[Rfam]
RNA sequence: GUCAAGGCCUGAAGAGCUUGACUCGGGCGUCGCGGCAGACGUUCGCGACGUGAUCCGUACCCAUGUUGCUCAAGGGAGAAUGUGGCUAUGAGAA
Numbered sequence: 001g002u003c004a005a006g007g008c009c010u011g012a013a014g015a016g017c018u019u020g021a022c023u024c025g026g027g028c029g030u031c032g033c034g035g036c037a038g039a040c041g042u043u044c045g046c047g048a049c050g051u052g053a054u055c056c057g058u059a060c061c062c063a064u065g066u067u068g069c070u071c072a073a074g075g076g077a078g079a080a081u082g083u084g085g086c087u088a089u090g091a092g093a094a
Stems, first nucleotide, its partner, number of pairs: 001022006008016001027051009054092001056090004061085007069078003

The record is a 94-nucleotide RNA from Lichenifustis flavocetrariae, which matches "Repression of heat shock gene expression (ROSE) element" in Rfam. A search with the family's covariance model found it, with a score of 48 bits. Rfam's curators write: This family represents a 5' UTR cis-regulatory element found in heat shock mRNAs and is known as the ROSE (repression of heat shock gene expression) element. The literature on the family includes a 2001 paper in Nucleic Acids Res by Nocker et al., "A mRNA-based thermosensor controls expression of rhizobial heat shock genes". Taxonomically the source falls in Lichenifustis (Bacteria, Pseudomonadati, Pseudomonadota, Hyphomicrobiales). The family's RNA type in Rfam is RNA thermoregulator.